[Rfam]
Nucleotides: 075
Stems, first nucleotide, its partner, number of pairs: 014026001016024002031071003038065002043060003047056001049054001
Number, partner (000 for none) and nucleotide at each position: 001000c002000u003000u004000c005000a006000g007000c008000g009000a010000c011000c012000c013000c014026a015000g016024c017023c018000a019000c020000a021000g022000c023017g024016g025000g026014u027000c028000g029000g030000c031071c032070g033069c034000g035000u036000c037000c038065c039064g040000g041000u042000c043060c044059u045058g046000c047056c048000c049054g050000u051000a052000g053000g054049u055000c056047g057000c058045c059044a060043g061000g062000a063000u064039c065038g066000c067000c068000u069033g070032c071031g072000c073000c074000u075000c
The record is a 75-nucleotide sequence from Frankia alni, which matches "ASpks TB sRNA" in Rfam.
The family's consensus secondary structure is taken from published work.
Rfam classes the family as an antisense RNA.
The organism belongs to Frankia alni, within Bacteria.